Annotation
Shown here is a 192-nucleotide RNA from Streptomyces paludis, a member of the family "c-di-AMP riboswitch aptamer (ydaO/yuaA leader)". Taxonomically the source falls in Streptomyces (Bacteria, Bacillati, Actinomycetota, Kitasatosporales). The match comes from Rfam's covariance-model search (39 bits).

RNA sequence: CCGUUCCGGAUGUCUGAGUCGACAGGAGUGGAUCGGCAGGAGUGGAGGACCCAAGCAGUACGGGACGACGCACGUCGUGGUCGUCCCUUGGGGUGAAGCCGUGGGAUCUGUCUCGACAGGGCUCCGCGGCCGGGCAACUUCGCCAGCCCGAACCCGACAGGUCAUCCUUCACAGGCGGCUGACGAAGGGUUG
Numbered sequence: 001c002c003g004u005u006c007c008g009g010a011u012g013u014c015u016g017a018g019u020c021g022a023c024a025g026g027a028g029u030g031g032a033u034c035g036g037c038a039g040g041a042g043u044g045g046a047g048g049a050c051c052c053a054a055g056c057a058g059u060a061c062g063g064g065a066c067g068a069c070g071c072a073c074g075u076c077g078u079g080g081u082c083g084u085c086c087c088u089u090g091g092g093g094u095g096a097a098g099c100c101g102u103g104g105g106a107u108c109u110g111u112c113u114c115g116a117c118a119g120g121g122c123u124c125c126g127c128g129g130c131c132g133g134g135c136a137a138c139u140u141c142g143c144c145a146g147c148c149c150g151a152a153c154c155c156g157a158c159a160g161g162u163c164a165u166c167c168u169u170c171a172c173a174g175g176c177g178g179c180u181g182a183c184g185a186a187g188g189g190u191u192g
Stems, first nucleotide, its partner, number of pairs: 001174001005041003042172006052090004091155003099129007132149004